The family of this 85-nucleotide RNA from Homo sapiens is "mir-515 microRNA precursor family". The base pairs follow the family's consensus structure, which was predicted with RNAalifold.
RNA sequence: UCUCAAGCUGUGACUGCAAAGGGAAGCCCUUUCUGUUGUCUGAAAGAAGAGAAAGCGCUUCCCUUUGCUGGAUUACGGUUUGAGA
Numbered sequence: 001u002c003u004c005a006a007g008c009u010g011u012g013a014c015u016g017c018a019a020a021g022g023g024a025a026g027c028c029c030u031u032u033c034u035g036u037u038g039u040c041u042g043a044a045a046g047a048a049g050a051g052a053a054a055g056c057g058c059u060u061c062c063c064u065u066u067g068c069u070g071g072a073u074u075a076c077g078g079u080u081u082g083a084g085a
Stems, first nucleotide, its partner, number of pairs: 001085005007079007014071003018066010029055005036050002
The sequence is in the family's curated seed alignment. Its Rfam clan is "mir-290 clan". A reference for the family is Bentwich et al. (2005), "Identification of hundreds of conserved and nonconserved human microRNAs", Nat Genet. The organism belongs to Homo, within Eukaryota.